[Rfam]
A member of the RNA family "U2 spliceosomal RNA" from Yarrowia lipolytica, 193 nucleotides long.

RNA sequence: ACAAAUCUCUUUGCCUUUUGGCUUAGAUCAAGUGUAGUAUCUGUUCUUUUCAGUGUAACAACUGAAACGGCCCAAUUUGGGUCUUUUAAUGUUACAACUAUUUUUGCAGCUAGUGGGUCUCUCUCUGGGCUUGCUCAUGGAGACCCGCACUGUGUCGUUGCCCUUACACUACCGGCUUCUGACGCUAUCUAUG
Numbered sequence: 001a002c003a004a005a006u007c008u009c010u011u012u013g014c015c016u017u018u019u020g021g022c023u024u025a026g027a028u029c030a031a032g033u034g035u036a037g038u039a040u041c042u043g044u045u046c047u048u049u050u051c052a053g054u055g056u057a058a059c060a061a062c063u064g065a066a067a068c069g070g071c072c073c074a075a076u077u078u079g080g081g082u083c084u085u086u087u088a089a090u091g092u093u094a095c096a097a098c099u100a101u102u103u104u105u106g107c108a109g110c111u112a113g114u115g116g117g118u119c120u121c122u123c124u125c126u127g128g129g130c131u132u133g134c135u136c137a138u139g140g141a142g143a144c145c146c147g148c149a150c151u152g153u154g155u156c157g158u159u160g161c162c163c164u165u166a167c168a169c170u171a172c173c174g175g176c177u178u179c180u181g182a183c184g185c186u187a188u189c190u191a192u193g
Base pairs, nucleotide, nucleotide: 008027009026010025013022014021015020048067049066050065051064052063053062069083070082071081072080073079074078113148114147115146116145117144118143119142120141126137127136128135129134152185153184154183155182156181157179160176161175162174
From the family's description: U2 is a small nuclear RNA (snRNA) component of the spliceosome (involved in pre-mRNA splicing). Complementary binding between U2 snRNA (in an area lying towards the 5' end but 3' to hairpin I) and the branchpoint sequence (BPS) of the intron results the bulging out of an unpaired adenosine, on the BPS, which initiates a nucleophilic attack at the intronic 5' splice site, thus starting the first of two transesterification reactions that mediate splicing. Rfam 15.1 lists 71,512 matches to the family in 2,642 species. The base pairs follow the family's consensus structure, which is taken from published work. Its family is annotated with U2 snRNP, mRNA branch site recognition and pre-mRNA branch point binding in the Gene Ontology.